[Rfam]
RNA sequence: UAGGUAGACAGCAAACUCCCGGAUGCCCAAGCAUCUCAUGAGUUCACUAUUACCGCUAUGCUGACAGCGUUGGCAGGGUCCAACCUGAUUUACGGUGCGG
Dot-bracket structure: ..(........)............(......)(.(........................).)..............(..(..............)..)..
Numbered sequence: 001u002a003g004g005u006a007g008a009c010a011g012c013a014a015a016c017u018c019c020c021g022g023a024u025g026c027c028c029a030a031g032c033a034u035c036u037c038a039u040g041a042g043u044u045c046a047c048u049a050u051u052a053c054c055g056c057u058a059u060g061c062u063g064a065c066a067g068c069g070u071u072g073g074c075a076g077g078g079u080c081c082a083a084c085c086u087g088a089u090u091u092a093c094g095g096u097g098c099g100g
Stems, first nucleotide, its partner, number of pairs: 003012001025032001033062001035060001077098001080095001